[Rfam]
This 107-nucleotide sequence from Eubacteriaceae bacterium Marseille-Q4139 belongs to the Rfam family "c-di-GMP-I riboswitch aptamer".

RNA sequence: UAGACUUUUAGGCAAACUUACAGAAAUGUAAGGACGCAAAGUUAGAAGCCUUAGGUGUGGGAACCGGCAUGCGGCCGAUGGAAACACAAGGUAGUUCGGCUGCAGGC
Numbered sequence: 001u002a003g004a005c006u007u008u009u010a011g012g013c014a015a016a017c018u019u020a021c022a023g024a025a026a027u028g029u030a031a032g033g034a035c036g037c038a039a040a041g042u043u044a045g046a047a048g049c050c051u052u053a054g055g056u057g058u059g060g061g062a063a064c065c066g067g068c069a070u071g072c073g074g075c076c077g078a079u080g081g082a083a084a085c086a087c088a089a090g091g092u093a094g095u096u097c098g099g100c101u102g103c104a105g106g107c
Stems, first nucleotide, its partner, number of pairs: 012037002017032006040101004045097003048092003055087004
The organism belongs to Eubacteriaceae, within Bacteria. Pairs were carried over by alignment from the consensus structure, which is taken from published work. The match comes from Rfam's covariance-model search (56 bits).